[Rfam]
RNA sequence: GGAGGUAGGUCCUCCGAUGAGGGUUUUUAGGAAAACUCAUCAAACCACUUUUAUGAUGCAUCCAAGGCAACAAAGAUGUGUGAAGCGAUAGAAGAAAAGGCUAUUUUAAAUAGUCAGGU
Numbered sequence: 001g002g003a004g005g006u007a008g009g010u011c012c013u014c015c016g017a018u019g020a021g022g023g024u025u026u027u028u029a030g031g032a033a034a035a036c037u038c039a040u041c042a043a044a045c046c047a048c049u050u051u052u053a054u055g056a057u058g059c060a061u062c063c064a065a066g067g068c069a070a071c072a073a074a075g076a077u078g079u080g081u082g083a084a085g086c087g088a089u090a091g092a093a094g095a096a097a098a099g100g101c102u103a104u105u106u107u108a109a110a111u112a113g114u115c116a117g118g119u
Stems, first nucleotide, its partner, number of pairs: 001015005016041006024033003046118001048094002051091004056081001058079003062075001099115006
Dot-bracket structure: (((((.....)))))((((((..(((....)))..))))))....(.((.((((.(.(((.(............).))).)......)))).))....((((((.....))))))..).